RNA: mir-653 microRNA precursor family
RNA sequence: UCCUUCAGUGUUGAAACACUCUGUUGAACCAGAUUACAGAAAGUUCACUGGAGUUUUGUUUCAACAUUGCAAGAA
Dot-bracket structure: ..(((((((((((((((((((((.(((((.............))))).)))))...))))))))))))).)))..
Numbered sequence: 001u002c003c004u005u006c007a008g009u010g011u012u013g014a015a016a017c018a019c020u021c022u023g024u025u026g027a028a029c030c031a032g033a034u035u036a037c038a039g040a041a042a043g044u045u046c047a048c049u050g051g052a053g054u055u056u057u058g059u060u061u062c063a064a065c066a067u068u069g070c071a072a073g074a075a
Stems, first nucleotide, its partner, number of pairs: 003073003006069013019053005025047005